[Rfam]
RNA sequence: CGUCCUUGCCCAUUUUUGGGCGUUUCCUCCCAAACACCUAUCAGGCCGGGCUUCGUGCCCGGCCCUUUUUUGGCCACGA
Numbered sequence: 001c002g003u004c005c006u007u008g009c010c011c012a013u014u015u016u017u018g019g020g021c022g023u024u025u026c027c028u029c030c031c032a033a034a035c036a037c038c039u040a041u042c043a044g045g046c047c048g049g050g051c052u053u054c055g056u057g058c059c060c061g062g063c064c065c066u067u068u069u070u071u072g073g074c075c076a077c078g079a
Base pairs, nucleotide, nucleotide: 008021009020010019011018044064045063046062047061048060049059050058051057
Rfam assigns this 79-nucleotide RNA from Candidatus Phycosocius bacilliformis to the family "Makes More Granules Regulator RNA (mmgR)". Its Rfam clan is "suhB sRNA clan". Rfam 15.1 lists 1,791 matches to the family in 918 species. Rfam classes the family as a small RNA. Lineage of the source: Bacteria > Pseudomonadati > Pseudomonadota > Alphaproteobacteria > Candidatus Phycosocius. The pairing is the family consensus, mapped onto this sequence.